Record summary: Rfam assigns this 86-nucleotide RNA from Ixodes scapularis to the family "Small nucleolar RNA snR60/Z15/Z230/Z193/J17". Pairs were carried over by alignment from the consensus structure. Gene Ontology terms of the family: RNA processing and nucleolus. The family has 23 seed sequences and 3,592 matches in Rfam 15.1. Clan: SNORD77 clan. For this family Rfam cites "A computational screen for methylation guide snoRNAs in yeast" (Lowe and Eddy, Science, 1999). The organism belongs to Ixodes, within Eukaryota. The match comes from Rfam's covariance-model search (58 bits).
RNA sequence: CCUUUUGAAUGAUGAUUGCAUAGUUCAGCUGAUUGCCCCUGACGACUUUGCUAGCUAAAGUCUUUCGCUCCUAUCUGAUCCAAUCU
Numbered sequence: 001c002c003u004u005u006u007g008a009a010u011g012a013u014g015a016u017u018g019c020a021u022a023g024u025u026c027a028g029c030u031g032a033u034u035g036c037c038c039c040u041g042a043c044g045a046c047u048u049u050g051c052u053a054g055c056u057a058a059a060g061u062c063u064u065u066c067g068c069u070c071c072u073a074u075c076u077g078a079u080c081c082a083a084u085c086u
Base pairs, nucleotide, nucleotide: 004083005082007080008079